[Rfam]
RNA sequence: GACGUGGUAUACAAGGUCUCUGUCUUAAUGACCCAUCCGCGAGGAUACAGUAAGACGACAGAGAAGCCGAUAUUGCGUCGUACGUUUUGAAAAACGA
Number, nucleotide and partner (000 for none) at each position: 001g079002a078003c077004g076005u075006g074007g073008u072009a071010u070011a000012c000013a000014a000015g068016g067017u000018c000019u062020c061021u060022g059023u058024c057025u000026u000027a000028a000029u053030g000031a000032c000033c000034c000035a046036u045037c044038c043039g000040c000041g000042a000043g038044g037045a036046u035047a000048c000049a000050g000051u000052a000053a029054g000055a000056c000057g024058a023059c022060a021061g020062a019063g000064a000065a000066g000067c016068c015069g000070a010071u009072a008073u007074u006075g005076c004077g003078u002079c001080g000081u000082a000083c096084g095085u094086u000087u000088u000089g000090a000091a000092a000093a000094a085095c084096g083097a000
The family of this 97-nucleotide part of an RNA from Halohasta litchfieldiae is "Archaeal large subunit ribosomal RNA". The family's consensus secondary structure is taken from published work. Lineage of the source: Archaea > Halobacteria > Halobacteriales > Haloferacaceae > Halohasta. A search with the family's covariance model found it, with a score of 2786 bits.